[Rfam]
Source information: The family of this 118-nucleotide RNA sequence from Methyloversatilis discipulorum is "RT-12 RNA". The sequence is in the family's curated seed alignment. Taxonomically the source falls in Methyloversatilis (Bacteria, Pseudomonadati, Betaproteobacteria, Sterolibacteriaceae).
Nucleotides: 118
Stems, first nucleotide, its partner, number of pairs: 009091005017035002020032003042056004058117004063112001066109010081097005
Number, partner (000 for none) and nucleotide at each position: 001000u002000a003000a004000c005000a006000c007000g008000c009091g010090u011089g012088g013087c014000g015000a016000c017035g018034c019000u020032g021031u022030g023000c024000c025000u026000u027000g028000u029000g030022c031021a032020u033000c034018g035017c036000a037000a038000g039000a040000u041000a042056g043055u044054g045053a046000u047000g048000a049000g050000u051000u052000a053045u054044c055043a056042c057000u058117u059116g060115g061114u062000u063112a064000a065000g066109c067108c068107g069106g070105g071104g072103a073102g074101g075100g076000u077000g078000u079000a080000a081097g082096a083095g084094a085093u086000u087013g088012c089011c090010a091009c092000g093085g094084u095083c096082u097081c098000a099000u100075c101074c102073c103072u104071c105070u106069c107068c108067g109066g110000u111000u112063u113000u114061g115060c116059u117058a118000u